[Rfam]
RNA: Small nucleolar RNA snoR100
RNA sequence: CAAUGAAGUAAGCAUGGUAAUGUGCACAUAAAUUGAAUUGGGUCUCUAGGUCUACCCUCUCUACCCUCUCUGAUGUCAUUCGGCUUUGAUUUGGGGGCAUGGUUCCGCAACAAAAUA
Numbered sequence: 001c002a003a004u005g006a007a008g009u010a011a012g013c014a015u016g017g018u019a020a021u022g023u024g025c026a027c028a029u030a031a032a033u034u035g036a037a038u039u040g041g042g043u044c045u046c047u048a049g050g051u052c053u054a055c056c057c058u059c060u061c062u063a064c065c066c067u068c069u070c071u072g073a074u075g076u077c078a079u080u081c082g083g084c085u086u087u088g089a090u091u092u093g094g095g096g097g098c099a100u101g102g103u104u105c106c107g108c109a110a111c112a113a114a115a116u117a
Stems, first nucleotide, its partner, number of pairs: 012025004040100001042098003050090003055083002